[Rfam]
RNA sequence: CCCAAGAGUAGAAGCGGUCAGGAGCUGCACCCAGCCUCCGGGACAUUGCUCUUUGU
Numbered sequence: 001c002c003c004a005a006g007a008g009u010a011g012a013a014g015c016g017g018u019c020a021g022g023a024g025c026u027g028c029a030c031c032c033a034g035c036c037u038c039c040g041g042g043a044c045a046u047u048g049c050u051c052u053u054u055g056u
Stems, first nucleotide, its partner, number of pairs: 005052006015041001018043002021039003024035004
RNA: Xanthine riboswitch aptamer (NMT1 RNA)